[Rfam]
RNA sequence: GCACAUCUGGAAAGCGGACACGGUCAGCCGUGCUCCCACCCACGGUGCAAGCCCGCCGUCGCCCCCGCUCGGGGGCGGGCGCGGUGAAGCUCUCAGGUUGCGACGACAGAUGGGGAGAC
Numbered sequence: 001g002c003a004c005a006u007c008u009g010g011a012a013a014g015c016g017g018a019c020a021c022g023g024u025c026a027g028c029c030g031u032g033c034u035c036c037c038a039c040c041c042a043c044g045g046u047g048c049a050a051g052c053c054c055g056c057c058g059u060c061g062c063c064c065c066c067g068c069u070c071g072g073g074g075g076c077g078g079g080c081g082c083g084g085u086g087a088a089g090c091u092c093u094c095a096g097g098u099u100g101c102g103a104c105g106a107c108a109g110a111u112g113g114g115g116a117g118a119c
Stems, first nucleotide, its partner, number of pairs: 002114001004112006016036003038098003042093001045092001047090001051085002
Glycine riboswitch aptamer: a 119-nucleotide RNA from Peterkaempfera bronchialis.
The match comes from Rfam's covariance-model search (32 bits).
About the family: This family represents the bacterial glycine riboswitch.